The family of this 128-nucleotide sequence from Marmota monax is "Small nucleolar RNA SNORA61".
RNA sequence: ACCCUCUGGUUUCCUUUCCUGUCAGAUCUGAUCACUGGUCUUAGCAUCUGUGAAAGGAGAAAACCUAAAUUCAAGCUGGUCUUAGAGUGUAGUUUGGCAUAUAGUAUACGGGAUAGUUUCAAACAGGU
Numbered sequence: 001a002c003c004c005u006c007u008g009g010u011u012u013c014c015u016u017u018c019c020u021g022u023c024a025g026a027u028c029u030g031a032u033c034a035c036u037g038g039u040c041u042u043a044g045c046a047u048c049u050g051u052g053a054a055a056g057g058a059g060a061a062a063a064c065c066u067a068a069a070u071u072c073a074a075g076c077u078g079g080u081c082u083u084a085g086a087g088u089g090u091a092g093u094u095u096g097g098c099a100u101a102u103a104g105u106a107u108a109c110g111g112g113a114u115a116g117u118u119u120c121a122a123a124c125a126g127g128u
Base pairs, nucleotide, nucleotide: 004059005058006057007056020046021045022044025040026039027038028037076116077115078114080112081111082110088106089105090104

It scores 79 bits against the family's covariance model.